Rfam assigns this 110-nucleotide RNA from Actinidia chinensis to the family "MIR397 microRNA precursor family".

Nucleotides: 110
Base pairs, nucleotide, nucleotide: 006107007106008105009104010103011102013100014099015098016097017096018095019094020093021092022091023090024089025088026087027086028085030083031082032081
Number, partner (000 for none) and nucleotide at each position: 001000c002000u003000u004000a005000a006107a007106a008105g009104c010103a011102u012000c013100a014099u015098u016097g017096a018095g019094u020093g021092c022091a023090g024089c025088g026087u027086u028085g029000a030083u031082g032081a033000u034000c035000u036000u037000c038000g039000u040000u041000u042000u043000g044000a045000c046000a047000a048000u049000u050000u051000c052000u053000g054000g055000u056000u057000u058000u059000c060000c061000a062000g063000a064000c065000a066000g067000c068000u069000u070000g071000g072000g073000a074000u075000g076000u077000g078000g079000u080000u081032u082031c083030a084000u085028c086027a087026a088025c089024g090023c091022u092021g093020c094019a095018c096017u097016c098015g099014a100013u101000u102011a103010u104009g105008u106007u107006u108000u109000u110000a
The family's consensus secondary structure was predicted with WAR.
Taxonomically the source falls in Actinidia chinensis (Eukaryota, Embryophyta, Magnoliopsida, Actinidia).
Rfam 15.1 lists 496 matches to the family in 218 species.
A reference for the family is Mica et al. (2009), "High throughput approaches reveal splicing of primary microRNA transcripts and tissue specific expression of mature microRNAs in Vitis vinifera", BMC Genomics.
A search with the family's covariance model found it, with a score of 77 bits.